The family of this 64-nucleotide RNA from Chlorella variabilis is "Selenocysteine insertion sequence 1". The match comes from Rfam's covariance-model search (36 bits). Taxonomically the source falls in Chlorella (Eukaryota, Viridiplantae, Chlorophyta, Trebouxiophyceae). Rfam classes the family as a cis-regulatory element.
RNA sequence: CCUGCUCUAUGACGGCGGCAGGCUAAACCGCACCUUCGGACGCCUGCCGCCCGACCCCUGCGGC
Numbered sequence: 001c002c003u004g005c006u007c008u009a010u011g012a013c014g015g016c017g018g019c020a021g022g023c024u025a026a027a028c029c030g031c032a033c034c035u036u037c038g039g040a041c042g043c044c045u046g047c048c049g050c051c052c053g054a055c056c057c058c059u060g061c062g063g064c
Base pairs, nucleotide, nucleotide: 002063003062004061005060014051015050016049017048018047019046020045021044022043023042028039029038030037